Shown here is an 89-nucleotide RNA sequence from Ammoniphilus sp. CFH 90114, a member of the family "c-di-GMP-I riboswitch aptamer". For this family Rfam cites "Identification of 22 candidate structured RNAs in bacteria using the CMfinder comparative genomics pipeline" (Weinberg et al., Nucleic Acids Res, 2007). The source organism's lineage runs through Bacteria, Bacillota, Bacilli, Paenibacillaceae and Ammoniphilus. It scores 82 bits against the family's covariance model.
RNA sequence: ACUCGAUCAAGGCAAAUCUAUCGAAAGGUAGAGACGCAAAGCUAUGGGUCUAAGGUCCUUUUUGUGACUAUGAUCGCCAGGCUGCCGAG
Numbered sequence: 001a002c003u004c005g006a007u008c009a010a011g012g013c014a015a016a017u018c019u020a021u022c023g024a025a026a027g028g029u030a031g032a033g034a035c036g037c038a039a040a041g042c043u044a045u046g047g048g049u050c051u052a053a054g055g056u057c058c059u060u061u062u063u064g065u066g067a068c069u070a071u072g073a074u075c076g077c078c079a080g081g082c083u084g085c086c087g088a089g
Stems, first nucleotide, its partner, number of pairs: 012037002017032006040083004045079003048074003055068003